[Rfam]
Background: This 580-nucleotide part of an RNA from uncultured crenarchaeote belongs to the Rfam family "Archaeal large subunit ribosomal RNA". Rfam's curators put it in the seed alignment. For this family Rfam cites "Crystal structure of the ribosome at 5.5 A resolution" (Yusupov et al., Science, 2001). Taxonomically the source falls in Thermoproteota (Archaea, Thermoproteati).

RNA sequence: CCUCUGUCGGGGAGAGAAGACCCUGUGGAGCUUUACUGCAGCCUGUUGUUGCUGUAUGGUUGCGAAUGCAGAGAGUAGCUGGGAGCCUUCGAAGUCAGUCCUCCGGGAUUGAUGGAGGCAACGUUGUAACACCAGCCAUCCGCUACCGUACGGCUAACCCGUUAUCACGGGGACAUCGGCAGGUGGGCAGUUCGGCUGGGGCGGCACCCCCUUGAAAAAGUAUCGAGGGGGCCCAAAGAUUGGCUCAAGCGGGACAGAACUCCGCUGUUGAGGGCAAAGCCAGAAGCCAGUCUGACUGGAUCUCCAAUGAUACGAGAUUCAGAGGCGAAAGCCGGGCUUAGCGAUCCAUCAUGUCCCCACUAUUGGGGGCUGGUGGUGACAGAAAAGUUACCCUAGGGAUAACAGGCUCGUCGCGGGCGAGAGCUCCUAUCGACCCCGCGGUUUGGUACCUCGAUGUCGGCUCUUCCCAUCCUGGUUCUGCAGCAGGAGCCAAGGGUGGGGCUGCUCGCCCAUUAAAGGGGAACGUGAGCUGGGUUUAGACCGUCGUGAGACAGGUCGGUCUCUGCCUGACAGGGGUGUA
Numbered sequence: 001c002c003u004c005u006g007u008c009g010g011g012g013a014g015a016g017a018a019g020a021c022c023c024u025g026u027g028g029a030g031c032u033u034u035a036c037u038g039c040a041g042c043c044u045g046u047u048g049u050u051g052c053u054g055u056a057u058g059g060u061u062g063c064g065a066a067u068g069c070a071g072a073g074a075g076u077a078g079c080u081g082g083g084a085g086c087c088u089u090c091g092a093a094g095u096c097a098g099u100c101c102u103c104c105g106g107g108a109u110u111g112a113u114g115g116a117g118g119c120a121a122c123g124u125u126g127u128a129a130c131a132c133c134a135g136c137c138a139u140c141c142g143c144u145a146c147c148g149u150a151c152g153g154c155u156a157a158c159c160c161g162u163u164a165u166c167a168c169g170g171g172g173a174c175a176u177c178g179g180c181a182g183g184u185g186g187g188c189a190g191u192u193c194g195g196c197u198g199g200g201g202c203g204g205c206a207c208c209c210c211c212u213u214g215a216a217a218a219a220g221u222a223u224c225g226a227g228g229g230g231g232c233c234c235a236a237a238g239a240u241u242g243g244c245u246c247a248a249g250c251g252g253g254a255c256a257g258a259a260c261u262c263c264g265c266u267g268u269u270g271a272g273g274g275c276a277a278a279g280c281c282a283g284a285a286g287c288c289a290g291u292c293u294g295a296c297u298g299g300a301u302c303u304c305c306a307a308u309g310a311u312a313c314g315a316g317a318u319u320c321a322g323a324g325g326c327g328a329a330a331g332c333c334g335g336g337c338u339u340a341g342c343g344a345u346c347c348a349u350c351a352u353g354u355c356c357c358c359a360c361u362a363u364u365g366g367g368g369g370c371u372g373g374u375g376g377u378g379a380c381a382g383a384a385a386a387g388u389u390a391c392c393c394u395a396g397g398g399a400u401a402a403c404a405g406g407c408u409c410g411u412c413g414c415g416g417g418c419g420a421g422a423g424c425u426c427c428u429a430u431c432g433a434c435c436c437c438g439c440g441g442u443u444u445g446g447u448a449c450c451u452c453g454a455u456g457u458c459g460g461c462u463c464u465u466c467c468c469a470u471c472c473u474g475g476u477u478c479u480g481c482a483g484c485a486g487g488a489g490c491c492a493a494g495g496g497u498g499g500g501g502c503u504g505c506u507c508g509c510c511c512a513u514u515a516a517a518g519g520g521g522a523a524c525g526u527g528a529g530c531u532g533g534g535u536u537u538a539g540a541c542c543g544u545c546g547u548g549a550g551a552c553a554g555g556u557c558g559g560u561c562u563c564u565g566c567c568u569g570a571c572a573g574g575g576g577u578g579u580a
Base pairs, nucleotide, nucleotide: 001576002575003574004573005572006571007570008569010568011567012566014563015562022397023396024395025394027393028392029389030388031387032386033385035191036190037189038188042183043182044181045180046179047178048177051154052153053152054151055150056149057148058147059146060145062143063142064141066139067138068137078136079135080134081133082132085119086118087117097110098109099108100107101106158171159170160169161168194207195205196204197203208230209229210228211227212226213225233336234335239291240290241289242288243287244286245271246270248266249265250264251263252262253261272281273280296322297321298320299319300318301317302316303315304314324333326331347375348374349373350372351371353370355369356368357367358366406447407446408445410444411441412440413439414438415437416436417435421431422430458533459531460530461529462528463525464522465521466520467519468518471496472495475490476489477488478487479486499511500510501509502508539557540556541555542554543552544551545550